[Rfam]
RNA sequence: UCACCAAAAGUUUGUUUGGGGGGAAGGUUUUUUAAUAACCUUUACCAGUUCUGGGCUAUUUGGGAGAAUAAAGAAAAGACCACACUCCACAGUGAGCUAUACCACUUAGUAUAGUUCAUUACUAUUUUGUGGCCUACAUU
Numbered sequence: 001u002c003a004c005c006a007a008a009a010g011u012u013u014g015u016u017u018g019g020g021g022g023g024a025a026g027g028u029u030u031u032u033u034a035a036u037a038a039c040c041u042u043u044a045c046c047a048g049u050u051c052u053g054g055g056c057u058a059u060u061u062g063g064g065a066g067a068a069u070a071a072a073g074a075a076a077a078g079a080c081c082a083c084a085c086u087c088c089a090c091a092g093u094g095a096g097c098u099a100u101a102c103c104a105c106u107u108a109g110u111a112u113a114g115u116u117c118a119u120u121a122c123u124a125u126u127u128u129g130u131g132g133c134c135u136a137c138a139u140u
Stems, first nucleotide, its partner, number of pairs: 004063005012058001014056004018050002022046002025043001026040004077135002080132005091120012
Shown here is a 140-nucleotide RNA from Monodon monoceros, a member of the family "Small nucleolar RNA SNORA4". About the family: ACA4 is a member of the H/ACA class of snoRNA that guide the sites of modification of uridines to pseudouridines. Gene Ontology terms of the family: RNA processing and nucleolus. The family's consensus secondary structure was predicted with PFOLD. Its Rfam clan is "SNORA4 clan". The match comes from Rfam's covariance-model search (129 bits).